[Rfam]
RNA: mir-133 microRNA precursor family
RNA sequence: CUUCUAUAGCUGGUUGAACUCGGGCCAAAUUGUUGAAGAGCCUUUCAUUUGGUCCCCUUCAACCAGCUGUAGUUA
Numbered sequence: 001c002u003u004c005u006a007u008a009g010c011u012g013g014u015u016g017a018a019c020u021c022g023g024g025c026c027a028a029a030u031u032g033u034u035g036a037a038g039a040g041c042c043u044u045u046c047a048u049u050u051g052g053u054c055c056c057c058u059u060c061a062a063c064c065a066g067c068u069g070u071a072g073u074u075a
Stems, first nucleotide, its partner, number of pairs: 004072003008068011022054002025052006